A member of the RNA family "Streptomyces RNA 5676" from Streptomyces sp. MnatMP-M17, 130 nucleotides long. The base pairs follow the family's consensus structure. Rfam describes the family as follows. Identified by deep sequencing of transcriptome at the end of exponential growth phase. On this family, see Vockenhuber et al., RNA Biol 2011: "Deep sequencing-based identification of small non-coding RNAs in Streptomyces coelicolor".

[Rfam]
RNA sequence: AGAUGAGAGAAACACCCCGCUCGCAGGGGACUGCGGGCGACACCGGAGCGGAGCAUCCCCAGCACCGCUUUGGUCGUGCCUUCGCGCACACCACUGGAGAUUCAGGCUCUGGAACUCCUUGCCGAUCGGA
Numbered sequence: 001a002g003a004u005g006a007g008a009g010a011a012a013c014a015c016c017c018c019g020c021u022c023g024c025a026g027g028g029g030a031c032u033g034c035g036g037g038c039g040a041c042a043c044c045g046g047a048g049c050g051g052a053g054c055a056u057c058c059c060c061a062g063c064a065c066c067g068c069u070u071u072g073g074u075c076g077u078g079c080c081u082u083c084g085c086g087c088a089c090a091c092c093a094c095u096g097g098a099g100a101u102u103c104a105g106g107c108u109c110u111g112g113a114a115c116u117c118c119u120u121g122c123c124g125a126u127c128g129g130a
Stems, first nucleotide, its partner, number of pairs: 004121004009117002018039009042074006049067003053063002076089004094112006101106001122129002